mir-1299 microRNA precursor family: an 83-nucleotide sequence from Pan paniscus. Lineage of the source: Eukaryota > Eumetazoa > Deuterostomia > Hominoidea > Pan. Gene Ontology terms of the family: RISC complex and miRNA-mediated post-transcriptional gene silencing. It scores 89 bits against the family's covariance model.
RNA sequence: CCUCGUAGCAGUGUUCUGGAAUCCUACGUGAGGGACAAACACUCAGAACCCAGCAGCAGUAUUCUGGAAUCCUAUGUGGGGGA
Numbered sequence: 001c002c003u004c005g006u007a008g009c010a011g012u013g014u015u016c017u018g019g020a021a022u023c024c025u026a027c028g029u030g031a032g033g034g035a036c037a038a039a040c041a042c043u044c045a046g047a048a049c050c051c052a053g054c055a056g057c058a059g060u061a062u063u064c065u066g067g068a069a070u071c072c073u074a075u076g077u078g079g080g081g082g083a
Base pairs, nucleotide, nucleotide: 001081002080003079004078005077006076007075010073011072013070014069015068016067017066018065019064020063021062022061024059025058027056028054029053032050033049